[Rfam]
RNA sequence: CAAAAGGGUCAGUUGGCUAAAUAUGCCGCUCUCGCCCUUGAUUGGUGGGUGCCGUAUGGAUAUCAAGACAUAUGGCUGACAUAAUUUGUGGGACCUCCAAGGGUUGGCUCGCUCAGGCCCACCCUCCA
Numbered sequence: 001c002a003a004a005a006g007g008g009u010c011a012g013u014u015g016g017c018u019a020a021a022u023a024u025g026c027c028g029c030u031c032u033c034g035c036c037c038u039u040g041a042u043u044g045g046u047g048g049g050u051g052c053c054g055u056a057u058g059g060a061u062a063u064c065a066a067g068a069c070a071u072a073u074g075g076c077u078g079a080c081a082u083a084a085u086u087u088g089u090g091g092g093a094c095c096u097c098c099a100a101g102g103g104u105u106g107g108c109u110c111g112c113u114c115a116g117g118c119c120c121a122c123c124c125u126c127c128a
Base pairs, nucleotide, nucleotide: 008080009079010078011077012076014028015027016026017025029051031049032048033047034046035045036044052075053074054073055072056071057070058069100125101124102123103122104121106119107118109115